[Rfam]
RNA sequence: GGGUCACUUCAAAGAGGGUUUGCGUGGCUGAAAAACCAGCAGCUCUUAACGCAGUGACCGUACAUUGAAAUCCUCUGCAGGAUGCUGUGGACACGUUGUGUGUGCUGUGGUCUAUUUCUGAGGAGAUAAAACC
Numbered sequence: 001g002g003g004u005c006a007c008u009u010c011a012a013a014g015a016g017g018g019u020u021u022g023c024g025u026g027g028c029u030g031a032a033a034a035a036c037c038a039g040c041a042g043c044u045c046u047u048a049a050c051g052c053a054g055u056g057a058c059c060g061u062a063c064a065u066u067g068a069a070a071u072c073c074u075c076u077g078c079a080g081g082a083u084g085c086u087g088u089g090g091a092c093a094c095g096u097u098g099u100g101u102g103u104g105c106u107g108u109g110g111u112c113u114a115u116u117u118c119u120g121a122g123g124a125g126a127u128a129a130a131a132c133c
Base pairs, nucleotide, nucleotide: 002059003058004057005056006055007054014047015046016045017044018043019042020041023039026037027036073125074124075123076122079119080118081117082116087108088107089106090105092104093103094102095101
RNA: Small nucleolar RNA SNORA25